[Rfam]
RNA sequence: UGGUAGAUGCACCCUGAUAACUCACUUCCCCUAGUUAACUGCCAUUGACUGGGGGAUUUCUGU
Numbered sequence: 001u002g003g004u005a006g007a008u009g010c011a012c013c014c015u016g017a018u019a020a021c022u023c024a025c026u027u028c029c030c031c032u033a034g035u036u037a038a039c040u041g042c043c044a045u046u047g048a049c050u051g052g053g054g055g056a057u058u059u060c061u062g063u
Base pairs, nucleotide, nucleotide: 002013003012004011028055029054030053031052032051033050034049035048036047037046038045
RNA: Nitrogen stress-induced RNA 1